Rfam assigns this 354-nucleotide sequence from Lactovum miscens to the family "Bacterial RNase P class B". The organism belongs to Lactovum, within Bacteria. On this family, see Frank and Pace, Annu Rev Biochem 1998: "Ribonuclease P: unity and diversity in a tRNA processing ribozyme". Clan: RNaseP clan. Rfam's curators write: Ribonuclease P (RNase P) is a ubiquitous endoribonuclease, found in archaea, bacteria and eukarya as well as chloroplasts and mitochondria. Its best characterised activity is the generation of mature 5'-ends of tRNAs by cleaving the 5'-leader elements of precursor-tRNAs. Gene Ontology terms of the family: dimeric ribonuclease P complex, ribonuclease P activity and tRNA processing.

RNA sequence: GUUUUCGGAUAAUCGCACGAUGUUUAGAUAUCGUGAGGAAAGUCCAGGCUCGUCCGCACUGCGAUGUGCGGAGUGAUUGUGUCAGACGAAUAAAUAAGUCUGAGUAGGGCGUCAACCCUAACGGCGGUGAAAUGGACUAAGUCUUUUAGAUAUGCCAAAUUAGCUUUAAAGUGCCAUAGAGACGAAUCUUUCUGAAAACGGAAAGGCUGGAACGUGGUAAACCCCUCAAGCGAGCAACCCAAACUACGGUCGGGGCAUUUGACUAGCCAAAUUGAAGGCGUGGUCGAGCGUGCAUUGCACGAGACAGAUGAUUAUCCAGGAUGGAAGCAUCCGGACAAAACUUGGCUUAUAGAA
Numbered sequence: 001g002u003u004u005u006c007g008g009a010u011a012a013u014c015g016c017a018c019g020a021u022g023u024u025u026a027g028a029u030a031u032c033g034u035g036a037g038g039a040a041a042g043u044c045c046a047g048g049c050u051c052g053u054c055c056g057c058a059c060u061g062c063g064a065u066g067u068g069c070g071g072a073g074u075g076a077u078u079g080u081g082u083c084a085g086a087c088g089a090a091u092a093a094a095u096a097a098g099u100c101u102g103a104g105u106a107g108g109g110c111g112u113c114a115a116c117c118c119u120a121a122c123g124g125c126g127g128u129g130a131a132a133u134g135g136a137c138u139a140a141g142u143c144u145u146u147u148a149g150a151u152a153u154g155c156c157a158a159a160u161u162a163g164c165u166u167u168a169a170a171g172u173g174c175c176a177u178a179g180a181g182a183c184g185a186a187u188c189u190u191u192c193u194g195a196a197a198a199c200g201g202a203a204a205g206g207c208u209g210g211a212a213c214g215u216g217g218u219a220a221a222c223c224c225c226u227c228a229a230g231c232g233a234g235c236a237a238c239c240c241a242a243a244c245u246a247c248g249g250u251c252g253g254g255g256c257a258u259u260u261g262a263c264u265a266g267c268c269a270a271a272u273u274g275a276a277g278g279c280g281u282g283g284u285c286g287a288g289c290g291u292g293c294a295u296u297g298c299a300c301g302a303g304a305c306a307g308a309u310g311a312u313u314a315u316c317c318a319g320g321a322u323g324g325a326a327g328c329a330u331c332c333g334g335a336c337a338a339a340a341c342u343u344g345g346c347u348u349a350u351a352g353a354a
Base pairs, nucleotide, nucleotide: 004354005353006352007350008316009315010314011313012312013311014310016035017034018033019032020031021030040348041347042346044345045344046343047342048341049234050233051232052231053230054071055070056069057068058067059066077229078228079227081225082103083102084101085100086099087098104122105120106119107118108117109116123224124223126165127164128163134156135155137154141151142150143149171222172221173218174217175216187206188205189204190203191202192201193200194199238254239253240252258288259287260286261285262284263283264282289301290300291299292298293297319332320331321330322329323328